Rfam assigns this 37-nucleotide sequence from Lamprobacter modestohalophilus to the family "CRISPR RNA direct repeat element".
RNA sequence: GUAUCGCCCGGCAACUCAGCCGGGCGCGGAUUGAAAC
Numbered sequence: 001g002u003a004u005c006g007c008c009c010g011g012c013a014a015c016u017c018a019g020c021c022g023g024g025c026g027c028g029g030a031u032u033g034a035a036a037c
Base pairs, nucleotide, nucleotide: 005026006025007024008023009022010021011020012019
Overview
A search with the family's covariance model found it, with a score of 48 bits. NCBI's taxonomy places the organism under Bacteria, Pseudomonadati, Gammaproteobacteria, Chromatiaceae, Lamprobacter. The family has 7 seed sequences and 1,410 matches in Rfam 15.1.